[Rfam]
RNA sequence: CCCGCGGCAAGACGGAAAGACCCCGUGGACCUUUACUACAGCUUGACACUGCUACUUGGAUAAGAAUGUGCAGGAUAGGUGGGAGGCUUUGAUUCAUAGACGCCAGUUUAUGAUGAGCCAUUGUUGAGAUACCACUCUUUCUUAUUUGGGUAGCUAACCAGCUUGAGUUAUCCUCAAGUGGGACAAUGUCUGGUGGGUAGUUUGACUGGGGCGGUCGCCUCCCAAAUAAUAACGGAGGCUUACAAAGGUUGGCUCAAGAUGGUUGGAAAUCAUCUGUAGAGUAUAAAGGUAUAAGCCAGCUUAACUGCAAGACAUACAAGUCAAGCAGAGACGAAAGUCGGUCUUAGUGAUCCGGUGGUUCUGUGUGGAAGGGCCAUCGCUCAAAGGAUAAAAGGUACCCCGGGGAUAACAGGCUGAUCUCCCCCAAGAGCUCACAUCGACGGGGAGGUUUGGCACCUCGAUGUCGGCUCAUCGCAUCCUGGGGCUGGAGCAGGUCCCAAGGGUAUGGCUGUUCGCCAUUUAAAGCGGUACGCGAGCUGGGUUCAGAACGUCGUGAGACAGUUCGGUCCCUAUCUGCCGUGGGCGUA
Numbered sequence: 001c002c003c004g005c006g007g008c009a010a011g012a013c014g015g016a017a018a019g020a021c022c023c024c025g026u027g028g029a030c031c032u033u034u035a036c037u038a039c040a041g042c043u044u045g046a047c048a049c050u051g052c053u054a055c056u057u058g059g060a061u062a063a064g065a066a067u068g069u070g071c072a073g074g075a076u077a078g079g080u081g082g083g084a085g086g087c088u089u090u091g092a093u094u095c096a097u098a099g100a101c102g103c104c105a106g107u108u109u110a111u112g113a114u115g116a117g118c119c120a121u122u123g124u125u126g127a128g129a130u131a132c133c134a135c136u137c138u139u140u141c142u143u144a145u146u147u148g149g150g151u152a153g154c155u156a157a158c159c160a161g162c163u164u165g166a167g168u169u170a171u172c173c174u175c176a177a178g179u180g181g182g183a184c185a186a187u188g189u190c191u192g193g194u195g196g197g198u199a200g201u202u203u204g205a206c207u208g209g210g211g212c213g214g215u216c217g218c219c220u221c222c223c224a225a226a227u228a229a230u231a232a233c234g235g236a237g238g239c240u241u242a243c244a245a246a247g248g249u250u251g252g253c254u255c256a257a258g259a260u261g262g263u264u265g266g267a268a269a270u271c272a273u274c275u276g277u278a279g280a281g282u283a284u285a286a287a288g289g290u291a292u293a294a295g296c297c298a299g300c301u302u303a304a305c306u307g308c309a310a311g312a313c314a315u316a317c318a319a320g321u322c323a324a325g326c327a328g329a330g331a332c333g334a335a336a337g338u339c340g341g342u343c344u345u346a347g348u349g350a351u352c353c354g355g356u357g358g359u360u361c362u363g364u365g366u367g368g369a370a371g372g373g374c375c376a377u378c379g380c381u382c383a384a385a386g387g388a389u390a391a392a393a394g395g396u397a398c399c400c401c402g403g404g405g406a407u408a409a410c411a412g413g414c415u416g417a418u419c420u421c422c423c424c425c426a427a428g429a430g431c432u433c434a435c436a437u438c439g440a441c442g443g444g445g446a447g448g449u450u451u452g453g454c455a456c457c458u459c460g461a462u463g464u465c466g467g468c469u470c471a472u473c474g475c476a477u478c479c480u481g482g483g484g485c486u487g488g489a490g491c492a493g494g495u496c497c498c499a500a501g502g503g504u505a506u507g508g509c510u511g512u513u514c515g516c517c518a519u520u521u522a523a524a525g526c527g528g529u530a531c532g533c534g535a536g537c538u539g540g541g542u543u544c545a546g547a548a549c550g551u552c553g554u555g556a557g558a559c560a561g562u563u564c565g566g567u568c569c570c571u572a573u574c575u576g577c578c579g580u581g582g583g584c585g586u587a
Stems, first nucleotide, its partner, number of pairs: 001583008010575003014570002022404004027400002029396005035201004042193002045190004051154016068137001078136005085119003094113008158181003162178006204216004217239006240385001242342002248300006254280002257275006281290002305328004311322003330339003353379007361372002413454003417451001418448007428438002465540001466538004470532001471529005478503002481498006505519005546564004550559003
Record summary:
Rfam assigns this 587-nucleotide part of an RNA from Campylobacter sp. MIT 12-5580 to the family "Bacterial large subunit ribosomal RNA". The base pairs follow the family's consensus structure, which is taken from published work. The organism belongs to Campylobacter, within Bacteria.